[Rfam]
RNA: Archaeal small subunit ribosomal RNA, nucleotides 601 to 956
Organism: Klebsormidium nitens
Nucleotides: 356
Stems, first nucleotide, its partner, number of pairs: 007319003015316001017205004022199001024198003028091001030089004037083001038079002042076005051069007096192003099188005107181007118154008129140003166173002210251006219245002225239003262315006270293010297304002321348003330341004
Number, partner (000 for none) and nucleotide at each position: 001000u002000a003000a004000u005000u006000g007319g008318g009317c010000g011000u012000a013000a014000a015316g016000g017205g018204u019203a020202c021000g022199u023000a024198g025197g026196c027000g028091g029000u030089c031088a032087g033086a034000u035000u036000g037083a038079g039078c040000u041000c042076a043075g044074a045073c046072c047000u048000a049000a050000g051069c052068c053067a054066u055065a056064g057063g058000c059000u060000u061000a062000a063057c064056c065055u066054a067053u068052g069051g070000a071000c072046g073045g074044u075043c076042u077000u078039g079038c080000a081000g082000c083037u084000g085000u086033u087032c088031u089030g090000u091028c092000u093000u094000u095000g096192a097191g098190u099188u100187g101186g102185a103184u104000a105000g106000g107181g108180a109179a110178g111177a112176g113175u114000g115000g116000a117000a118154u119153u120152u121151c122150u123149a124148g125147u126000g127000g128000a129140g130139a131138g132000a133000u134000u135000a136000a137000a138131u139130u140129c141000a142000u143000a144000g145000a146000u147125a148124u149123u150122a151121g152120a153119a154118g155000g156000a157000a158000g159000g160000c161000c162000g163000g164000c165000g166173g167172c168000g169000a170000a171000g172167g173166c174000a175113a176112c177111u178110c179109u180108u181107u182000a183000g184103a185102u186101c187100c188099a189000g190098a191097c192096u193000g194000a195000c196026g197025c198024u199022a200000a201000g202020g203019u204018a205017c206000g207000a208000a209000a210251g211250c212249g213248u214247g215246g216000g217000g218000a219245g220244c221000a222000a223000a224000c225239g226238g227237g228000a229000u230000u231000a232000g233000a234000u235000a236000c237227c238226c239225c240000a241000g242000u243000a244220g245219u246215c247214c248213a249212c250211g251210c252000c253000g254000u255000a256000a257000a258000c259000g260000a261000u262315g263314a264313g265312u266311g267310c268000u269000c270293g271292c272291c273290u274289u275288u276287g277286g278285u279284c280000u281000u282000u283000c284279g285278a286277u287276c288275a289274g290273g291272g292271g293270c294000u295000u296000a297304g298303c299000a300000a301000a302000c303298g304297c305000g306000a307000u308000a309000a310267g311266c312265a313264c314263u315262c316015c317009g318008c319007c320000u321348g322347g323346g324000g325000a326000g327000u328000a329000c330341g331340a332339u333338g334000g335000c336000a337000a338333c339332a340331u341330u342000g343000a344000a345000a346323c347322u348321c349000a350000a351000a352000g353000g354000a355000a356000u